[Rfam]
RNA sequence: UCGGCCCCGGUUCACGCAUGCCGCAACCCGCGGCGGCGACCCGGUGCC
Numbered sequence: 001u002c003g004g005c006c007c008c009g010g011u012u013c014a015c016g017c018a019u020g021c022c023g024c025a026a027c028c029c030g031c032g033g034c035g036g037c038g039a040c041c042c043g044g045u046g047c048c
Base pairs, nucleotide, nucleotide: 003048004047005046007044008043009042010041015038016037017036019035020034021033022032023031

L31-Actinobacteria ribosomal protein leader: a 48-nucleotide sequence from Streptomyces bikiniensis. It is one of the family's seed sequences. By type it is a cis-regulatory leader. Lineage of the source: Bacteria > Bacillati > Actinomycetes > Streptomycetaceae > Streptomyces.